[Rfam]
RNA sequence: ACUGUCAAGGGCAAACCCUGCGAAAGCAGGGGACGCAAAGUCAUCGGUCUAAAGGGCGUAAGCCCCAAGGCGGCAGGACUGCCAGU
Numbered sequence: 001a002c003u004g005u006c007a008a009g010g011g012c013a014a015a016c017c018c019u020g021c022g023a024a025a026g027c028a029g030g031g032g033a034c035g036c037a038a039a040g041u042c043a044u045c046g047g048u049c050u051a052a053a054g055g056g057c058g059u060a061a062g063c064c065c066c067a068a069g070g071c072g073g074c075a076g077g078a079c080u081g082c083c084a085g086u
Stems, first nucleotide, its partner, number of pairs: 011036002016031006039080004044076001046074001047071003054065004

Shown here is an 86-nucleotide RNA, a member of the family "c-di-GMP-I riboswitch aptamer". It scores 70 bits against the family's covariance model. Gene Ontology term of the family: cyclic-di-GMP binding.